[Rfam]
RNA sequence: UGUCUCCUCCACCUCUCUUGGUGGAUUCAGCCUCCGGAUCGCAAGGUCCGGGGGCUUUUUUU
Numbered sequence: 001u002g003u004c005u006c007c008u009c010c011a012c013c014u015c016u017c018u019u020g021g022u023g024g025a026u027u028c029a030g031c032c033u034c035c036g037g038a039u040c041g042c043a044a045g046g047u048c049c050g051g052g053g054g055c056u057u058u059u060u061u062u
Stems, first nucleotide, its partner, number of pairs: 008025006030055003034051005